[Rfam]
RNA sequence: AGUCAUAUGCUUGUCUCAAAGAUUAAGCCAUGCAUGUCUCAGUGCAAGCCACAUUAAGGUGAAACCGCGAAUGGCUCAUUAAAUCAGUUAUGGUUCCUUAGAUGGUGGACAGUUACUUGGAUAACUGUGGUAAUUCUAGAGCUAAUACAUGCAACUGAGUCCUGACCGGCGACGGAAGGGACGCUUUUAUUAGAUCAAAACCAAUCGGUCGCUCACGCGGCCGUUUGCCUUGGUGACUCUGAAUAAAUUGAGGCGGAUCGCACGGUCUCCGAACCGGCGACGCAUCUUUCAAAUGUCUGCCUUAUCAACUGUCGAUGGUAGGCUCUGCGCCUACCAUGGUUGUAACGGGUAACGGGGAAUCAGGGUUCGAUUCCGGAGAGGGAGCCUGAGAAACGGCUACCACAUCCAAGGAAGGCAGCAGGCGCGCAAAUUACCCACUCCCGGCACGGGGAGGUAGUGACGAAAAAUAACGAUACGGGACUCAUCCGAGGCCCCGUAAUCGGAAUGAGUACACUCUAAAGACUUUAACGAGUAUCCAUUGGAGGGCAAGUCUGGUGCCAGCAGCCGCGGUAAUUCCAGCUCCAAUAGCGUAUAUUAAAG
Numbered sequence: 001a002g003u004c005a006u007a008u009g010c011u012u013g014u015c016u017c018a019a020a021g022a023u024u025a026a027g028c029c030a031u032g033c034a035u036g037u038c039u040c041a042g043u044g045c046a047a048g049c050c051a052c053a054u055u056a057a058g059g060u061g062a063a064a065c066c067g068c069g070a071a072u073g074g075c076u077c078a079u080u081a082a083a084u085c086a087g088u089u090a091u092g093g094u095u096c097c098u099u100a101g102a103u104g105g106u107g108g109a110c111a112g113u114u115a116c117u118u119g120g121a122u123a124a125c126u127g128u129g130g131u132a133a134u135u136c137u138a139g140a141g142c143u144a145a146u147a148c149a150u151g152c153a154a155c156u157g158a159g160u161c162c163u164g165a166c167c168g169g170c171g172a173c174g175g176a177a178g179g180g181a182c183g184c185u186u187u188u189a190u191u192a193g194a195u196c197a198a199a200a201c202c203a204a205u206c207g208g209u210c211g212c213u214c215a216c217g218c219g220g221c222c223g224u225u226u227g228c229c230u231u232g233g234u235g236a237c238u239c240u241g242a243a244u245a246a247a248u249u250g251a252g253g254c255g256g257a258u259c260g261c262a263c264g265g266u267c268u269c270c271g272a273a274c275c276g277g278c279g280a281c282g283c284a285u286c287u288u289u290c291a292a293a294u295g296u297c298u299g300c301c302u303u304a305u306c307a308a309c310u311g312u313c314g315a316u317g318g319u320a321g322g323c324u325c326u327g328c329g330c331c332u333a334c335c336a337u338g339g340u341u342g343u344a345a346c347g348g349g350u351a352a353c354g355g356g357g358a359a360u361c362a363g364g365g366u367u368c369g370a371u372u373c374c375g376g377a378g379a380g381g382g383a384g385c386c387u388g389a390g391a392a393a394c395g396g397c398u399a400c401c402a403c404a405u406c407c408a409a410g411g412a413a414g415g416c417a418g419c420a421g422g423c424g425c426g427c428a429a430a431u432u433a434c435c436c437a438c439u440c441c442c443g444g445c446a447c448g449g450g451g452a453g454g455u456a457g458u459g460a461c462g463a464a465a466a467a468u469a470a471c472g473a474u475a476c477g478g479g480a481c482u483c484a485u486c487c488g489a490g491g492c493c494c495c496g497u498a499a500u501c502g503g504a505a506u507g508a509g510u511a512c513a514c515u516c517u518a519a520a521g522a523c524u525u526u527a528a529c530g531a532g533u534a535u536c537c538a539u540u541g542g543a544g545g546g547c548a549a550g551u552c553u554g555g556u557g558c559c560a561g562c563a564g565c566c567g568c569g570g571u572a573a574u575u576c577c578a579g580c581u582c583c584a585a586u587a588g589c590g591u592a593u594a595u596u597a598a599a600g
Base pairs, nucleotide, nucleotide: 001596002595003594005593006592007591008590009589010588011587014465016463017462020458021425027423028422029421031420032419033418036068037067042065043064048060049059075378076377077376085299086298087297090294091293094292095291100287101286102285103284116151118149119148125141126140128138129137130136159182160181161180162179163178166175167174187246188245189244190243191242200234201233202232203231215224216223217222258280259279260278261277263276264275265274266273301349302348303347308340309339310338315337316336317335318334319333320332321331322330353375354374355373356372357368358367359366360365380401381400383398384397385396403414405412406411431456433455434454435453439451440450441449442448443447471502472501473500474498475497476496477495478494479493481490482489483488509529510528511526513525539585540584541583542582543581544580552579553578554577555576561568562567

Notes:
A member of the RNA family "Eukaryotic small subunit ribosomal RNA" from Coptotermes formosanus, 600 nucleotides of a longer RNA. Lineage of the source: Eukaryota > Opisthokonta > Bilateria > Polyneoptera > Coptotermes.